[Rfam]
RNA sequence: ACUGGAAGCUGCUGGGACCAGUUGGGACCAGUCGUGGGCAAAAGAAAUAAUGUUUUGUCCACCGUUGCAGCCUUCCUAGAGCAAUGUGGAGGUCUCUGUCUGCUUUAGGAGAGCCAGCUAAACCGGAUCGUUCCCCUCCAUACACG
Numbered sequence: 001a002c003u004g005g006a007a008g009c010u011g012c013u014g015g016g017a018c019c020a021g022u023u024g025g026g027a028c029c030a031g032u033c034g035u036g037g038g039c040a041a042a043a044g045a046a047a048u049a050a051u052g053u054u055u056u057g058u059c060c061a062c063c064g065u066u067g068c069a070g071c072c073u074u075c076c077u078a079g080a081g082c083a084a085u086g087u088g089g090a091g092g093u094c095u096c097u098g099u100c101u102g103c104u105u106u107a108g109g110a111g112a113g114c115c116a117g118c119u120a121a122a123c124c125g126g127a128u129c130g131u132u133c134c135c136c137u138c139c140a141u142a143c144a145c146g
Stems, first nucleotide, its partner, number of pairs: 004076003008071005034062006044056003088139005096130001098128003102124001104122005